[Rfam]
RNA sequence: UCUAUGCGUUUCCAUUUGAGUAUCCUGAAAACGGGCUUUUCAGCAUGGAGCGCAUAAUGAAAUUAUAGGAGUGCAUAGUGGCCCGUAUAGCAGGCAUUAACAUUCCUGAU
Numbered sequence: 001u002c003u004a005u006g007c008g009u010u011u012c013c014a015u016u017u018g019a020g021u022a023u024c025c026u027g028a029a030a031a032c033g034g035g036c037u038u039u040u041c042a043g044c045a046u047g048g049a050g051c052g053c054a055u056a057a058u059g060a061a062a063u064u065a066u067a068g069g070a071g072u073g074c075a076u077a078g079u080g081g082c083c084c085g086u087a088u089a090g091c092a093g094g095c096a097u098u099a100a101c102a103u104u105c106c107u108g109a110u
Base pairs, nucleotide, nucleotide: 004055005054006053007052008051010050011049012048013047024094025093026092032085033084034083035082040109041108042107
Notes:
The record is a 110-nucleotide RNA from Paramixta manurensis, which matches "Alpha operon ribosome binding site" in Rfam. Rfam describes the family as follows. The bacterial alpha operon ribosome binding site is surrounded by this complex pseudoknotted structure. Translation of the mRNA produces 4 ribosomal protein products, one of which (S4) acts as a translational repressor by binding to the nested pseudoknot region. The mechanism of repression is thought to involve a conformational switch in the pseudoknot region and ribosome entrapment. A search with the family's covariance model found it, with a score of 101 bits. For this family Rfam cites "Translational repression of the Escherichia coli alpha operon mRNA: importance of an mRNA conformational switch and a ternary entrapment complex" (Schlax et al., J Biol Chem, 2001). Gene Ontology term of the family: ribosome binding.